This 54-nucleotide sequence from Oxynema aestuarii belongs to the Rfam family "Nitrogen stress-induced RNA 1". On this family, see Ionescu et al., J Mol Biol 2010: "Heterocyst-specific transcription of NsiR1, a non-coding RNA encoded in a tandem array of direct repeats in cyanobacteria". The base pairs follow the family's consensus structure. By type it is a small RNA. A search with the family's covariance model found it, with a score of 47 bits.
[Rfam]
RNA sequence: UGGUAGAUGCACCCUGAUUGACGUUUUCCGGCUCGCGAGAGCCGGAUUUUUUUU
Numbered sequence: 001u002g003g004u005a006g007a008u009g010c011a012c013c014c015u016g017a018u019u020g021a022c023g024u025u026u027u028c029c030g031g032c033u034c035g036c037g038a039g040a041g042c043c044g045g046a047u048u049u050u051u052u053u054u
Stems, first nucleotide, its partner, number of pairs: 002013003025046001028045007
Dot-bracket structure: .(((......)))...........(..(((((((....))))))))........